[Rfam]
RNA sequence: GAGACACCCCUCUGGGGCAAGACUUGAUUCAAUGGGCCUUUGGUGCUCACUGGGUCUUCCCCCUGAGUGUGUCCUU
Numbered sequence: 001g002a003g004a005c006a007c008c009c010c011u012c013u014g015g016g017g018c019a020a021g022a023c024u025u026g027a028u029u030c031a032a033u034g035g036g037c038c039u040u041u042g043g044u045g046c047u048c049a050c051u052g053g054g055u056c057u058u059c060c061c062c063c064u065g066a067g068u069g070u071g072u073c074c075u076u
Stems, first nucleotide, its partner, number of pairs: 001075001003073005009067001011065001014062004019057001021056003029053003033049004038043001
The record is a 76-nucleotide RNA from Myotis myotis, which matches "mir-9229 microRNA precursor family" in Rfam. Its family is annotated with RISC complex and miRNA-mediated post-transcriptional gene silencing in the Gene Ontology. The family's consensus secondary structure was predicted with RNAalifold. Rfam 15.1 lists 27,225 matches to the family in 9 species. Lineage of the source: Eukaryota > Opisthokonta > Tetrapoda > Boreoeutheria > Myotis.